[Rfam]
RNA sequence: ACAGUGUGAGGUAGUAGUUUGUAUAGUUUAAGGGUAGUGAUUUUGCUCUGUCUUGAAGAUAACUAUACAAUCUAUUGCCUUCCCUGG
Numbered sequence: 001a002c003a004g005u006g007u008g009a010g011g012u013a014g015u016a017g018u019u020u021g022u023a024u025a026g027u028u029u030a031a032g033g034g035u036a037g038u039g040a041u042u043u044u045g046c047u048c049u050g051u052c053u054u055g056a057a058g059a060u061a062a063c064u065a066u067a068c069a070a071u072c073u074a075u076u077g078c079c080u081u082c083c084c085u086g087g
Stems, first nucleotide, its partner, number of pairs: 002086003006082001008081010019070009032048004051058001